[Rfam]
RNA: U12 minor spliceosomal RNA
RNA sequence: AUGCCUUAAACUAAUGAGUAAGGAAAAUAACAAACCAGGGUGAUGCCUGGUUUAUUCACUACUUGUGAAAUGAAUGUUUGAGCAGGUACAGGCCUUCCCUUGCAGGUUCUAUCUACUUUGUGGGACCGUGAGAUGCACUGGACUGCCUG
Numbered sequence: 001a002u003g004c005c006u007u008a009a010a011c012u013a014a015u016g017a018g019u020a021a022g023g024a025a026a027a028u029a030a031c032a033a034a035c036c037a038g039g040g041u042g043a044u045g046c047c048u049g050g051u052u053u054a055u056u057c058a059c060u061a062c063u064u065g066u067g068a069a070a071u072g073a074a075u076g077u078u079u080g081a082g083c084a085g086g087u088a089c090a091g092g093c094c095u096u097c098c099c100u101u102g103c104a105g106g107u108u109c110u111a112u113c114u115a116c117u118u119u120g121u122g123g124g125a126c127c128g129u130g131a132g133a134u135g136c137a138c139u140g141g142a143c144u145g146c147c148u149g
Stems, first nucleotide, its partner, number of pairs: 004023005032053008055069005083149005090144002093141002100132001105127002108124005